[Rfam]
RNA sequence: UGCCUAAACCUACCAGCAAUGGUGGGCAUGGCAGACAAGACCUUUCGAACCAGUAAGCUCUUCCCAGAGCGUUCGAAAGGCUAUCGUGCGAAAGUGCGGUAGGCGGAGUAAUCCGUC
Numbered sequence: 001u002g003c004c005u006a007a008a009c010c011u012a013c014c015a016g017c018a019a020u021g022g023u024g025g026g027c028a029u030g031g032c033a034g035a036c037a038a039g040a041c042c043u044u045u046c047g048a049a050c051c052a053g054u055a056a057g058c059u060c061u062u063c064c065c066a067g068a069g070c071g072u073u074c075g076a077a078a079g080g081c082u083a084u085c086g087u088g089c090g091a092a093a094g095u096g097c098g099g100u101a102g103g104c105g106g107a108g109u110a111a112u113c114c115g116u117c
Base pairs, nucleotide, nucleotide: 001033002032003031004030009026010025011024012023013022014021015020041080042079043078044077045076046075047074048073049072050071057070058069059068060067061066082101083100084099085098086097087096088095089094102117103116104115105114106113107112
RNA: LOOT RNA